RNA sequence: UUACCACUCAGGCUCUGGCUAUAUUCCAGCUCUCAGUUGGUCCUGGGUAUAACCAAAACAUGACUGCACA
Numbered sequence: 001u002u003a004c005c006a007c008u009c010a011g012g013c014u015c016u017g018g019c020u021a022u023a024u025u026c027c028a029g030c031u032c033u034c035a036g037u038u039g040g041u042c043c044u045g046g047g048u049a050u051a052a053c054c055a056a057a058a059c060a061u062g063a064c065u066g067c068a069c070a
Stems, first nucleotide, its partner, number of pairs: 008063002012059001014057001016055003020051004026040005
Rfam assigns this 70-nucleotide RNA from Peromyscus maniculatus to the family "mir-344 microRNA precursor family". Pairs were carried over by alignment from the consensus structure, which was predicted with RNAalifold. A reference for the family is Linsen et al. (2010), "Small RNA expression and strain specificity in the rat", BMC Genomics. The source organism's lineage runs through Eukaryota, Vertebrata, Boreoeutheria, Muroidea and Peromyscus maniculatus.